[Rfam]
RNA: bantam microRNA precursor family
RNA sequence: CCACUUAUACGAAACUGGUUUUCACAGUGAUUUGACAGAUUUUUUCAUUCUGAGAUCAUUGUGAAAGCUGAUUUCGUUGA
Numbered sequence: 001c002c003a004c005u006u007a008u009a010c011g012a013a014a015c016u017g018g019u020u021u022u023c024a025c026a027g028u029g030a031u032u033u034g035a036c037a038g039a040u041u042u043u044u045u046c047a048u049u050c051u052g053a054g055a056u057c058a059u060u061g062u063g064a065a066a067g068c069u070g071a072u073u074u075c076g077u078u079g080a
Stems, first nucleotide, its partner, number of pairs: 009077006016070010028058006